[Rfam]
RNA sequence: AAAUAAAAACUGGGGAGUCCGAACUGGAGGCUGAGAGGAUGAAUUUAUUCAUCGACCCAUUGACCUGAUCCUGGUAAUGCAGGCGUAGGCAUUAAUAAUUUUUAAAAU
Numbered sequence: 001a002a003a004u005a006a007a008a009a010c011u012g013g014g015g016a017g018u019c020c021g022a023a024c025u026g027g028a029g030g031c032u033g034a035g036a037g038g039a040u041g042a043a044u045u046u047a048u049u050c051a052u053c054g055a056c057c058c059a060u061u062g063a064c065c066u067g068a069u070c071c072u073g074g075u076a077a078u079g080c081a082g083g084c085g086u087a088g089g090c091a092u093u094a095a096u097a098a099u100u101u102u103u104a105a106a107a108u
Stems, first nucleotide, its partner, number of pairs: 006096001009093001011059004017031003038053005064089004070083004

This 108-nucleotide sequence from Halanaerobium hydrogeniformans belongs to the Rfam family "TPP riboswitch aptamer (THI element)". Pairs were carried over by alignment from the consensus structure, which is taken from published work. It scores 60 bits against the family's covariance model.